[Rfam]
RNA sequence: AGUCGUUAUCAAGAAUCUCAAAAAGGGAGAUAGCAACCUGCAUAACGAGCAAGGUGCUAAAAUGAUAAGCCAGUCUUUGGAAAAAACGUUGAUCCU
Number, nucleotide and partner (000 for none) at each position: 001a000002g000003u000004c000005g000006u068007u067008a066009u065010c064011a000012a000013g000014a000015a031016u030017c029018u028019c027020a000021a000022a000023a000024a000025g000026g000027g019028a018029g017030a016031u015032a058033g057034c056035a000036a000037c054038c053039u052040g050041c049042a000043u000044a000045a000046c000047g089048a000049g041050c040051a000052a039053g038054g037055u000056g034057c033058u032059a000060a000061a000062a000063u000064g010065a009066u008067a007068a006069g000070c080071c079072a078073g077074u000075c000076u000077u073078u072079g071080g070081a000082a000083a000084a000085a000086a000087c000088g000089u047090u000091g000092a000093u000094c000095c000096u000